Shown here is a 126-nucleotide RNA from Prodigiosinella confusarubida, a member of the family "EFASI RNA".
RNA sequence: UCGUCCAGGUACUGAGGCGUUCACCAAAACCGGGUGAACGGGGAGCAUAAAAACCGUCGCACAGAGUGCUUAACGGGCUCCUGCAACAACUCAACACAGCCUCGCCAUGCUACACAGUAUCUGACG
Dot-bracket structure: .((((.((((((((...((((((((.......))))))))((((.........((((.((((...))))...))))..))))................................))))))))))))